[Rfam]
Glycine riboswitch aptamer: a 122-nucleotide RNA from Acidovorax delafieldii. The source organism's lineage runs through Bacteria, Pseudomonadati, Betaproteobacteria, Burkholderiales and Acidovorax delafieldii. Clan: Glycine riboswitch clan. Rfam links the family to the GO term glycine biosynthetic process.
RNA sequence: UCACAGCCGUCUGGAGAGCCGCCACCACCUGUCAGCAGCGUUGUGGCGCACCGAAGGAGCAAACCGUGCGCCAUGUGGGCCGUGCGGUGAAUCUCUCAGGUACCAAGGACAGGGGGAGCGGC
Dot-bracket structure: ......((.((((......((((((.................)))))).(((((..(((...((((((((..........))))))))....))))).)))........)))).))......